[Rfam]
RNA sequence: UCUCCCUACAAAGGCAUGUCUGUGGUUUCCUGUCUUUGGACACUAAGAAUUGGAGGCAAAGAAAGAAAUGUGGACUUGGAGAAAUCUAGAGCCAGCUUGCUCCCUGCAGGUUCAAGAUCAACCAUCCCAAAUAG
Numbered sequence: 001u002c003u004c005c006c007u008a009c010a011a012a013g014g015c016a017u018g019u020c021u022g023u024g025g026u027u028u029c030c031u032g033u034c035u036u037u038g039g040a041c042a043c044u045a046a047g048a049a050u051u052g053g054a055g056g057c058a059a060a061g062a063a064a065g066a067a068a069u070g071u072g073g074a075c076u077u078g079g080a081g082a083a084a085u086c087u088a089g090a091g092c093c094a095g096c097u098u099g100c101u102c103c104c105u106g107c108a109g110g111u112u113c114a115a116g117a118u119c120a121a122c123c124a125u126c127c128c129a130a131a132u133a134g
Stems, first nucleotide, its partner, number of pairs: 002056002005053002017042005024030002072127003076124001094112007